Description:
The record is an 84-nucleotide RNA sequence from Neptunomonas japonica, which matches "t44 RNA" in Rfam. The base pairs follow the family's consensus structure, which was predicted with LocARNA.
[Rfam]
RNA sequence: AUUGCGAGGAAUAUCUCACACACAUAUCGUCACAGUUUUCGGGUGCCGUUUACGGUUGGAUGCUGGGAUAUGUGGAGGUUGAAC
Numbered sequence: 001a002u003u004g005c006g007a008g009g010a011a012u013a014u015c016u017c018a019c020a021c022a023c024a025u026a027u028c029g030u031c032a033c034a035g036u037u038u039u040c041g042g043g044u045g046c047c048g049u050u051u052a053c054g055g056u057u058g059g060a061u062g063c064u065g066g067g068a069u070a071u072g073u074g075g076a077g078g079u080u081g082a083a084c
Stems, first nucleotide, its partner, number of pairs: 021074008033065004038060004045056004